Shown here is an 81-nucleotide RNA from Mortierella alpina, a member of the family "tRNA". Transfer RNA (tRNA) molecules are approximately 80 nucleotides in length. Taxonomically the source falls in Mortierella (Eukaryota, Fungi, Mortierellomycota, Mortierellaceae). It is annotated as a transfer RNA. The base pairs follow the family's consensus structure, which is taken from published work.
RNA sequence: GGCGAUAUGGCCGAGUUGGUCUAAGGCGCCAGAAUCAGGAUCUGGUCCGAAAGGGCGUGGGUUCAAAUCCCACUGUCGUCA
Numbered sequence: 001g002g003c004g005a006u007a008u009g010g011c012c013g014a015g016u017u018g019g020u021c022u023a024a025g026g027c028g029c030c031a032g033a034a035u036c037a038g039g040a041u042c043u044g045g046u047c048c049g050a051a052a053g054g055g056c057g058u059g060g061g062u063u064c065a066a067a068u069c070c071c072a073c074u075g076u077c078g079u080c081a
Stems, first nucleotide, its partner, number of pairs: 001080007010027003029045005057073005